[Rfam]
RNA sequence: UUGGGGGUGAUGAAGAAAAUCGUUCGGAUUCCCCUGAUUUCUAAUCGAAAUGUGGUCUUUAAACCAGCUACUUCUGACUCAA
Numbered sequence: 001u002u003g004g005g006g007g008u009g010a011u012g013a014a015g016a017a018a019a020u021c022g023u024u025c026g027g028a029u030u031c032c033c034c035u036g037a038u039u040u041c042u043a044a045u046c047g048a049a050a051u052g053u054g055g056u057c058u059u060u061a062a063a064c065c066a067g068c069u070a071c072u073u074c075u076g077a078c079u080c081a082a
Stems, first nucleotide, its partner, number of pairs: 001082005
This 82-nucleotide RNA sequence belongs to the Rfam family "Small nucleolar RNA R12". The literature on the family includes a 2003 paper in Nucleic Acids Res by Chen et al., "The high diversity of snoRNAs in plants: identification and comparative study of 120 snoRNA genes from Oryza sativa". Gene Ontology terms of the family: RNA processing and nucleolus. Rfam 15.1 lists 992 matches to the family in 220 species. snoR12 is a C/D box small nucleolar RNA, which acts as a methylation guide for 25S ribosomal RNA in plants. snoR12 has been alternatively named snoZ44 in Arabidopsis and snoZ131 in rice.